Rfam assigns this 89-nucleotide sequence from Raphanus sativus to the family "Small nucleolar RNA R16". The base pairs follow the family's consensus structure, which was predicted with PFOLD. The organism belongs to Raphanus, within Eukaryota. Rfam classes the family as a C/D-box small nucleolar RNA. The match comes from Rfam's covariance-model search (75 bits).
[Rfam]
RNA sequence: GAUGGCAAGUGAUGAAUUGAUUAUUAUGCUUAAAAACGCAGAAUAAAUAGUGUUUGACAAACAAUCUCCGCUUAUUAUCUGAUGCCAUA
Numbered sequence: 001g002a003u004g005g006c007a008a009g010u011g012a013u014g015a016a017u018u019g020a021u022u023a024u025u026a027u028g029c030u031u032a033a034a035a036a037c038g039c040a041g042a043a044u045a046a047a048u049a050g051u052g053u054u055u056g057a058c059a060a061a062c063a064a065u066c067u068c069c070g071c072u073u074a075u076u077a078u079c080u081g082a083u084g085c086c087a088u089a
Stems, first nucleotide, its partner, number of pairs: 003087005